[Rfam]
RNA: EcpR1
RNA sequence: AUUCCCCUCGGAGUGCUCAGGUCCGCCGCAUCUCCUGGGUCCGUGGGGCAGGUCGGCAGGGAACCGGCCGAAGAGUGGCCUCCUCGUUUGCCGUGUUCCCGCCGACCAUUUU
Numbered sequence: 001a002u003u004c005c006c007c008u009c010g011g012a013g014u015g016c017u018c019a020g021g022u023c024c025g026c027c028g029c030a031u032c033u034c035c036u037g038g039g040u041c042c043g044u045g046g047g048g049c050a051g052g053u054c055g056g057c058a059g060g061g062a063a064c065c066g067g068c069c070g071a072a073g074a075g076u077g078g079c080c081u082c083c084u085c086g087u088u089u090g091c092c093g094u095g096u097u098c099c100c101g102c103c104g105a106c107c108a109u110u111u112u
Stems, first nucleotide, its partner, number of pairs: 004048004009043002016039006051107007059099003